[Rfam]
RNA sequence: CCAGAUGGCCGGGCAGCCGCUGGUAUGCGGGUAACUGCAUACUGGAGGAAAGUCCGGGCUCCAGGUGGACAGGGCGACGGCUAACGGCCGCCCGGCGUGAGCCGAGGGAAAGUGCCACAGAAAGGAAACCGCCCGAAGGCUUCGGCCAGAGGGUAAGGGUGAAAGGGUGGGGUAAGAGCCCACCGCAGCGCUGGCAACAGGGCUGGCAUGGUAAACCCCGCCCGGAGCAAGACCAAGUAGGGGGCACAUAUGGGCUGUCCGCCGCCCGUGCCCCGGGUGCGUCGCGCCGAGGCGUUCAGCAAUGAACGCCCCAGAGGAAUGGCUGCCAGAUCCCGCAAGGGACGAACAGAACCCGGCUUAUUGGCCAUCUGGUCUA
Numbered sequence: 001c002c003a004g005a006u007g008g009c010c011g012g013g014c015a016g017c018c019g020c021u022g023g024u025a026u027g028c029g030g031g032u033a034a035c036u037g038c039a040u041a042c043u044g045g046a047g048g049a050a051a052g053u054c055c056g057g058g059c060u061c062c063a064g065g066u067g068g069a070c071a072g073g074g075c076g077a078c079g080g081c082u083a084a085c086g087g088c089c090g091c092c093c094g095g096c097g098u099g100a101g102c103c104g105a106g107g108g109a110a111a112g113u114g115c116c117a118c119a120g121a122a123a124g125g126a127a128a129c130c131g132c133c134c135g136a137a138g139g140c141u142u143c144g145g146c147c148a149g150a151g152g153g154u155a156a157g158g159g160u161g162a163a164a165g166g167g168u169g170g171g172g173u174a175a176g177a178g179c180c181c182a183c184c185g186c187a188g189c190g191c192u193g194g195c196a197a198c199a200g201g202g203c204u205g206g207c208a209u210g211g212u213a214a215a216c217c218c219c220g221c222c223c224g225g226a227g228c229a230a231g232a233c234c235a236a237g238u239a240g241g242g243g244g245c246a247c248a249u250a251u252g253g254g255c256u257g258u259c260c261g262c263c264g265c266c267c268g269u270g271c272c273c274c275g276g277g278u279g280c281g282u283c284g285c286g287c288c289g290a291g292g293c294g295u296u297c298a299g300c301a302a303u304g305a306a307c308g309c310c311c312c313a314g315a316g317g318a319a320u321g322g323c324u325g326c327c328a329g330a331u332c333c334c335g336c337a338a339g340g341g342a343c344g345a346a347c348a349g350a351a352c353c354c355g356g357c358u359u360a361u362u363g364g365c366c367a368u369c370u371g372g373u374c375u376a
Stems, first nucleotide, its partner, number of pairs: 001372010011361001012327007020045009050359003054356005059227004068260001072223005078090004092106001093104004107218002112216002114212003129158002131154004138147003166184006185207001186205004191200003231283003241274006252267004291310008

Rfam assigns this 376-nucleotide RNA sequence from Hyphomonas neptunium to the family "Bacterial RNase P class A". It is one of the family's seed sequences. The family's consensus secondary structure is taken from published work. On this family, see Frank and Pace, Annu Rev Biochem 1998: "Ribonuclease P: unity and diversity in a tRNA processing ribozyme". The organism belongs to Hyphomonas neptunium, within Bacteria.